[Rfam]
RNA sequence: CUUUGAACACACAAUGAGGUUCAAGGCGGAAGGAG
Numbered sequence: 001c002u003u004u005g006a007a008c009a010c011a012c013a014a015u016g017a018g019g020u021u022c023a024a025g026g027c028g029g030a031a032g033g034a035g
Stems, first nucleotide, its partner, number of pairs: 001026008

Description:
A member of the RNA family "L31-Firmicutes ribosomal protein leader" from Firmicutes bacterium M10-2, 35 nucleotides long. A reference for the family is Eckert and Weinberg (2020), "Discovery of 20 novel ribosomal leader candidates in bacteria and archaea", BMC Microbiol. The family's RNA type in Rfam is cis-regulatory leader. The sequence is in the family's curated seed alignment. The base pairs follow the family's consensus structure, which is taken from published work.